[Rfam]
RNA sequence: CUGCUGUGAUGAGUGUUCAAGUGACUGACCUGGUAUUGCUUCUCUCCGGGGACAGCUCUGACCAGGGCAUGAUCUGCAGUUAAUCUUCUCUCUGAGCAG
Number, nucleotide and partner (000 for none) at each position: 001c000002u000003g097004c096005u000006g000007u000008g000009a000010u000011g000012a000013g000014u000015g000016u000017u000018c000019a000020a000021g000022u000023g000024a000025c000026u000027g000028a000029c000030c000031u000032g000033g000034u000035a000036u000037u000038g056039c055040u054041u000042c000043u000044c000045u000046c000047c000048g000049g000050g000051g000052a000053c000054a040055g039056c038057u000058c000059u000060g000061a000062c000063c000064a000065g000066g000067g000068c000069a000070u000071g000072a000073u000074c000075u000076g000077c000078a000079g000080u000081u000082a000083a000084u000085c000086u000087u000088c000089u000090c000091u000092c000093u000094g000095a000096g004097c003098a000099g000

Source information:
The record is a 99-nucleotide RNA sequence from Mastacembelus armatus, which matches "Z30 small nucleolar RNA" in Rfam. By type it is a C/D-box small nucleolar RNA. For this family Rfam cites "Purified box C/D snoRNPs are able to reproduce site-specific 2'-O-methylation of target RNA in vitro" (Galardi et al., Mol Cell Biol, 2002). The organism belongs to Mastacembelus, within Eukaryota. A search with the family's covariance model found it, with a score of 78 bits.